[Rfam]
RNA sequence: GCUGUUUGGUGAUGAGGCUCUGGAAUGAGCGCUGACACAGUGCCCAAGUCAGGCUGUAGGAACAUUCCUUGUUGCCUUCCUUCUGAGAGCAUC
Number, nucleotide and partner (000 for none) at each position: 001g093002c000003u091004g090005u089006u000007u000008g000009g000010u000011g000012a000013u000014g000015a000016g000017g000018c000019u000020c000021u000022g000023g000024a000025a000026u000027g000028a000029g000030c000031g000032c000033u000034g000035a000036c000037a000038c000039a000040g000041u000042g000043c000044c000045c000046a000047a000048g000049u000050c000051a000052g000053g000054c000055u000056g000057u000058a000059g000060g000061a000062a000063c000064a000065u000066u000067c000068c000069u000070u000071g000072u000073u000074g000075c000076c000077u000078u000079c000080c000081u000082u000083c000084u000085g000086a000087g000088a000089g005090c004091a003092u000093c001
RNA: Small nucleolar RNA U83B